[Rfam]
The family of this 132-nucleotide RNA from Leptolyngbya sp. 'hensonii' is "c-di-AMP riboswitch aptamer (ydaO/yuaA leader)".
Nucleotides: 132
Base pairs, nucleotide, nucleotide: 004116005115006114008028009027010026011025012024029112030111031110032109033108034107039048040047049097050096051095057073058072059071060070076091077090078089079088
Number, partner (000 for none) and nucleotide at each position: 001000u002000u003000g004116g005115c006114c007000a008028u009027u010026c011025g012024g013000c014000c015000u016000u017000u018000u019000g020000u021000g022000a023000c024012u025011u026010g027009a028008a029112g030111c031110g032109g033108a034107g035000g036000a037000a038000c039048c040047a041000a042000a043000u044000u045000a046000u047040u048039g049097g050096g051095g052000c053000u054000a055000a056000u057073c058072u059071c060070g061000c062000u063000g064000g065000a066000u067000u068000g069000g070060c071059g072058a073057g074000a075000g076091a077090g078089a079088c080000a081000c082000c083000u084000u085000c086000c087000a088079g089078u090077c091076u092000c093000a094000g095051c096050c097049c098000g099000u100000c101000a102000g103000c104000u105000a106000a107034c108033u109032c110031c111030g112029u113000c114006g115005g116004c117000a118000u119000u120000g121000g122000g123000a124000g125000g126000a127000g128000a129000a130000c131000u132000c